About this RNA
The family of this 100-nucleotide sequence from Sparus aurata is "Small nucleolar RNA SNORD16". The family's RNA type in Rfam is C/D-box small nucleolar RNA. Its family is annotated with nucleolus and RNA processing in the Gene Ontology. The family's consensus secondary structure was predicted with PFOLD. For this family Rfam cites "RNomics: an experimental approach that identifies 201 candidates for novel, small, non-messenger RNAs in mouse" (Huttenhofer et al., EMBO J, 2001). Clan: SNORD16 clan. It scores 87 bits against the family's covariance model. Lineage of the source: Eukaryota > Actinopterygii > Neoteleostei > Eupercaria > Sparus.
RNA sequence: UGCAGUGAUGGUGUAAUUUGCGUCUGACUCUGUGAUCAGUGACAGAAUGCCUACUGUCAUAUGCUGGCACAGAUGGUUGACGAACAAUAGAGUCUGAGCA
Numbered sequence: 001u002g003c004a005g006u007g008a009u010g011g012u013g014u015a016a017u018u019u020g021c022g023u024c025u026g027a028c029u030c031u032g033u034g035a036u037c038a039g040u041g042a043c044a045g046a047a048u049g050c051c052u053a054c055u056g057u058c059a060u061a062u063g064c065u066g067g068c069a070c071a072g073a074u075g076g077u078u079g080a081c082g083a084a085c086a087a088u089a090g091a092g093u094c095u096g097a098g099c100a
Stems, first nucleotide, its partner, number of pairs: 001100003021082004030072005039064002041058005
Dot-bracket structure: (((.................((((.....(((((....(((((((........)))))....))...)))))......))))...............)))